[Rfam]
RNA sequence: UUAAUGCUAUAAUAAAUCCGUCGUAUAAAUUUGGAGAUAUGGUCCAAAAGUUUCUACCUGUCAACCGUAAAUUGACUGGCUACGAGGGUUUAUAGAGAAUAU
Numbered sequence: 001u002u003a004a005u006g007c008u009a010u011a012a013u014a015a016a017u018c019c020g021u022c023g024u025a026u027a028a029a030u031u032u033g034g035a036g037a038u039a040u041g042g043u044c045c046a047a048a049a050g051u052u053u054c055u056a057c058c059u060g061u062c063a064a065c066c067g068u069a070a071a072u073u074g075a076c077u078g079g080c081u082a083c084g085a086g087g088g089u090u091u092a093u094a095g096a097g098a099a100u101a102u
Base pairs, nucleotide, nucleotide: 018088019087021085022084023083024082025081030048031047032046033045034044035043058078060076061075062074063073064072
Dot-bracket structure: .................((.(((((....((((((.......)))))).........(.(((((.......))))).)..))))).))..............